Description
Makes More Granules Regulator RNA (mmgR): a 78-nucleotide RNA sequence from Hansschlegelia zhihuaiae. Rfam classes the family as a small RNA. Lineage of the source: Bacteria > Pseudomonadota > Hyphomicrobiales > Methylopilaceae > Hansschlegelia. From the family's description: SuhB later renamed mmgR (makes more granules regulator) was a putative non-coding RNA found multiple times in the Agrobacterium tumefaciens genome and related alpha-proteobacteria. Other non-coding RNAs uncovered in the same analysis include: speF, ybhL, metA, and serC.Several studies inSinorhizobium meliloti showed that suhB element is indeed a non-coding RNA:firstly it was detected on Northern blot and called Sm8RNA, secondly in an RNAseq study referred to as SmelC689.The mutant phenotype's (strain lacking the small RNA) cytoplasm contains higher content of polyhydroxybutyrate (PBH)storage granules than wild type strain.

RNA sequence: CGUCGCAGCCCUCUUGGGCGUUUCCUCCCUAGACUUGGGCCGUUCGCUUCGUGCGGACGGCCCUUUUUUCUGCGCCUC
Numbered sequence: 001c002g003u004c005g006c007a008g009c010c011c012u013c014u015u016g017g018g019c020g021u022u023u024c025c026u027c028c029c030u031a032g033a034c035u036u037g038g039g040c041c042g043u044u045c046g047c048u049u050c051g052u053g054c055g056g057a058c059g060g061c062c063c064u065u066u067u068u069u070c071u072g073c074g075c076c077u078c
Stems, first nucleotide, its partner, number of pairs: 008019004037063011